[Rfam]
RNA sequence: ACAAGAGCGGGAUGCCAAGACACGCGGUCCAUGCCCCGGCCGCCGGGACCGCGCCGAGCCACUGGCGAGACCGACCCGCUAUCCG
Numbered sequence: 001a002c003a004a005g006a007g008c009g010g011g012a013u014g015c016c017a018a019g020a021c022a023c024g025c026g027g028u029c030c031a032u033g034c035c036c037c038g039g040c041c042g043c044c045g046g047g048a049c050c051g052c053g054c055c056g057a058g059c060c061a062c063u064g065g066c067g068a069g070a071c072c073g074a075c076c077c078g079c080u081a082u083c084c085g
Stems, first nucleotide, its partner, number of pairs: 004082001006080006014059002023053007038072002041067004
Rfam assigns this 85-nucleotide sequence to the family "c-di-GMP-II-GAG riboswitch aptamer". Rfam's curators put it in the seed alignment.